Small nucleolar RNA SNORD22: a 113-nucleotide sequence from Cervus elaphus.
Rfam 15.1 lists 1,081 matches to the family in 414 species.
Its family is annotated with nucleolus and RNA processing in the Gene Ontology.
The family's RNA type in Rfam is C/D-box small nucleolar RNA.
RNA sequence: UCCCAGUGAAAAAACAUUCAAACAUCUUACCUCUUAUUCCAGUUCCAGAGAUUAUAAAGGUGAACCCACUGGGGCUGGCUUGGGGAGAAGAGGGAAGGAACUGUCUGAGGGAU
Numbered sequence: 001u002c003c004c005a006g007u008g009a010a011a012a013a014a015c016a017u018u019c020a021a022a023c024a025u026c027u028u029a030c031c032u033c034u035u036a037u038u039c040c041a042g043u044u045c046c047a048g049a050g051a052u053u054a055u056a057a058a059g060g061u062g063a064a065c066c067c068a069c070u071g072g073g074g075c076u077g078g079c080u081u082g083g084g085g086a087g088a089a090g091a092g093g094g095a096a097g098g099a100a101c102u103g104u105c106u107g108a109g110g111g112a113u
Stems, first nucleotide, its partner, number of pairs: 001112004